[Rfam]
RNA sequence: UUCUUAUCAAGAGUAGUGGAGGGACUGGUCCUAUGAUACUCGGCAACCUGAAUAUUUUUAUAUAUUCAAUGGUGCUAAUUCCAGCAGGUUAAACCUGAAAGAUGAGAG
Numbered sequence: 001u002u003c004u005u006a007u008c009a010a011g012a013g014u015a016g017u018g019g020a021g022g023g024a025c026u027g028g029u030c031c032u033a034u035g036a037u038a039c040u041c042g043g044c045a046a047c048c049u050g051a052a053u054a055u056u057u058u059u060a061u062a063u064a065u066u067c068a069a070u071g072g073u074g075c076u077a078a079u080u081c082c083a084g085c086a087g088g089u090u091a092a093a094c095c096u097g098a099a100a101g102a103u104g105a106g107a108g
Stems, first nucleotide, its partner, number of pairs: 001108008013041001015040003021031003025084004042076004047072002049068006080100001085097005
Shown here is a 108-nucleotide RNA sequence from Clostridium kluyveri, a member of the family "SAM riboswitch aptamer (S box leader)". It scores 91 bits against the family's covariance model.